The family of this 68-nucleotide RNA from Chlorobium phaeovibrioides is "Chlorobi-1 RNA".

[Rfam]
RNA sequence: GAAAUACCUCACGCCCGUGGGGUUGAGCAGAUGUAAUGGGGGACAUCUGCUCACAAAAAAAAGCGGCU
Numbered sequence: 001g002a003a004a005u006a007c008c009u010c011a012c013g014c015c016c017g018u019g020g021g022g023u024u025g026a027g028c029a030g031a032u033g034u035a036a037u038g039g040g041g042g043a044c045a046u047c048u049g050c051u052c053a054c055a056a057a058a059a060a061a062a063g064c065g066g067c068u
Stems, first nucleotide, its partner, number of pairs: 006023007025052010
Taxonomically the source falls in Chlorobium phaeovibrioides (Bacteria, Pseudomonadati, Chlorobiia, Chlorobiales).
By type it is a small RNA.
The family's consensus secondary structure is taken from published work.